[Rfam]
RNA sequence: CUAGGCUCUGAUUGUCCAAACGCAAUUCUUGUACAAAUAAACCCAAGAAUAGUGUUCUGGACAUCACCGCUUGG
Number, nucleotide and partner (000 for none) at each position: 001c000002u073003a072004g071005g070006c069007u000008c000009u066010g065011a064012u063013u000014g062015u061016c060017c059018a058019a000020a000021c054022g053023c052024a000025a050026u049027u048028c047029u046030u045031g044032u000033a000034c000035a000036a000037a000038u000039a000040a000041a000042c000043c000044c031045a030046a029047g028048a027049a026050u025051a000052g023053u022054g021055u000056u000057c000058u018059g017060g016061a015062c014063a012064u011065c010066a009067c000068c000069g006070c005071u004072u003073g002074g000
This 74-nucleotide sequence from Rhodnius prolixus belongs to the Rfam family "mir-219 microRNA precursor family".
Its family is annotated with miRNA-mediated post-transcriptional gene silencing and RISC complex in the Gene Ontology.
Lineage of the source: Eukaryota > Hexapoda > Dicondylia > Eumetabola > Rhodnius.